[Rfam]
RNA sequence: CGAGCAGGCGGAGGCGUCGACGCGCGUCUCCAGCUUCGGUCGCCUGAGUCGCGAAGAGCCACUGGCGAGCCCGUCCGCCUGCGUG
Number, nucleotide and partner (000 for none) at each position: 001c085002g084003a000004g082005c081006a080007g079008g078009c077010g076011g075012a000013g060014g059015c058016g000017u000018c000019g000020a000021c000022g000023c053024g052025c051026g050027u000028c048029u047030c000031c000032a000033g000034c000035u000036u000037c000038g072039g071040u068041c067042g066043c065044c064045u000046g000047a029048g028049u000050c026051g025052c024053g023054a000055a000056g000057a000058g015059c014060c013061a000062c000063u000064g044065g043066c042067g041068a040069g000070c000071c039072c038073g000074u000075c011076c010077g009078c008079c007080u006081g005082c004083g000084u002085g001
The family of this 85-nucleotide sequence is "c-di-GMP-II-GCG riboswitch aptamer". The family is grouped with related families in Rfam's "c-di-GMP_II riboswitch clan". For this family Rfam cites "Bioinformatic analysis of riboswitch structures uncovers variant classes with altered ligand specificity" (Weinberg et al., Proc Natl Acad Sci U S A, 2017). Its family is annotated with regulation of gene expression and cyclic-di-GMP binding in the Gene Ontology.